The family of this 108-nucleotide sequence from Desmophyllum pertusum is "Archaeal Small RNA 41". NCBI's taxonomy places the organism under Eukaryota, Opisthokonta, Anthozoa, Scleractinia, Desmophyllum. For this family Rfam cites "Deep sequencing analysis of the Methanosarcina mazei Go1 transcriptome in response to nitrogen availability" (Jager et al., Proc Natl Acad Sci U S A, 2009). Gene Ontology terms of the family: sRNA-mediated gene silencing and mRNA 5'-UTR binding. The match comes from Rfam's covariance-model search (52 bits).

RNA sequence: AUUUCGUUUCCCCUAAAAAUUAAAAGCCUUCUAAAAAUUUAAAGGGAGUACCCCCCGUACCCCCCCCCCCCCCCCGCCGCGCGGGGGGGGGGGGGGGGGGGGGGGGGA
Numbered sequence: 001a002u003u004u005c006g007u008u009u010c011c012c013c014u015a016a017a018a019a020u021u022a023a024a025a026g027c028c029u030u031c032u033a034a035a036a037a038u039u040u041a042a043a044g045g046g047a048g049u050a051c052c053c054c055c056c057g058u059a060c061c062c063c064c065c066c067c068c069c070c071c072c073c074c075c076g077c078c079g080c081g082c083g084g085g086g087g088g089g090g091g092g093g094g095g096g097g098g099g100g101g102g103g104g105g106g107g108a
Base pairs, nucleotide, nucleotide: 017040018039019038020037021036051105052104053103054102055101056100060098061097062096063095064094065093066092067091068090069089071087072086073085074084075083076082077081